[Rfam]
RNA sequence: AUGUGGCACUUUUUGAAUUUCGAGAUUCAAACAAGUCUAUCUUUGACCUAAAUUUUUCAUAGAUCUUUUAAACACACUGAGUUAUCAAUUAUUGUGACUUAUAUUAUUUUUUACGUAGUUUACAAAUAUAUAAAUUUUAUUUCAAAAAAUUGAAGAUUUCAUGCGCAAAUUUCCGGUCAAACUUAAACUGUUUGACUCUCGAAAAACGAAAAGUGCCACAUAA
Dot-bracket structure: (((((((((((((((..((((((((.(((((((.((.((..(((((((.(((((((.(((((((((((.........((((.((........((((..((.((..(((........))).)).))...)))).....)).)))).......)))))))).))).).))))))..)))))))..)).))))))))).))))))))..)))))))))))))))..
Numbered sequence: 001a002u003g004u005g006g007c008a009c010u011u012u013u014u015g016a017a018u019u020u021c022g023a024g025a026u027u028c029a030a031a032c033a034a035g036u037c038u039a040u041c042u043u044u045g046a047c048c049u050a051a052a053u054u055u056u057u058c059a060u061a062g063a064u065c066u067u068u069u070a071a072a073c074a075c076a077c078u079g080a081g082u083u084a085u086c087a088a089u090u091a092u093u094g095u096g097a098c099u100u101a102u103a104u105u106a107u108u109u110u111u112u113a114c115g116u117a118g119u120u121u122a123c124a125a126a127u128a129u130a131u132a133a134a135u136u137u138u139a140u141u142u143c144a145a146a147a148a149a150u151u152g153a154a155g156a157u158u159u160c161a162u163g164c165g166c167a168a169a170u171u172u173c174c175g176g177u178c179a180a181a182c183u184u185a186a187a188c189u190g191u192u193u194g195a196c197u198c199u200c201g202a203a204a205a206a207c208g209a210a211a212a213g214u215g216c217c218a219c220a221u222a223a
Stems, first nucleotide, its partner, number of pairs: 001221015018204008027195007035188002038185002042181007050172006056165001058163003061159008078144004083139002093132004099125002102122002106119003
The family of this 223-nucleotide RNA from Solanum commersonii is "MIR8007 microRNA precursor family". The base pairs follow the family's consensus structure, which was predicted with RNAalifold. Taxonomically the source falls in Solanum (Eukaryota, Embryophyta, Euphyllophyta, Solanales).